[Rfam]
RNA: Alphaproteobacterial sRNA ar35
RNA sequence: AAGAUGUCGGCCUGCAACCUUCAGGCUGCCUAAUCGUACCUGGUUUCGUCCUUGACCACGGAUGUACUGGCACCGACGACACCAAGUUAUCUGAGAGGCCGGGCUUAUAGCCUGGCCUUUUUUGUU
Numbered sequence: 001a002a003g004a005u006g007u008c009g010g011c012c013u014g015c016a017a018c019c020u021u022c023a024g025g026c027u028g029c030c031u032a033a034u035c036g037u038a039c040c041u042g043g044u045u046u047c048g049u050c051c052u053u054g055a056c057c058a059c060g061g062a063u064g065u066a067c068u069g070g071c072a073c074c075g076a077c078g079a080c081a082c083c084a085a086g087u088u089a090u091c092u093g094a095g096a097g098g099c100c101g102g103g104c105u106u107a108u109a110g111c112c113u114g115g116c117c118u119u120u121u122u123u124g125u126u
Stems, first nucleotide, its partner, number of pairs: 001031001008028005038087002041084004047078004053072002056070003089125002093121013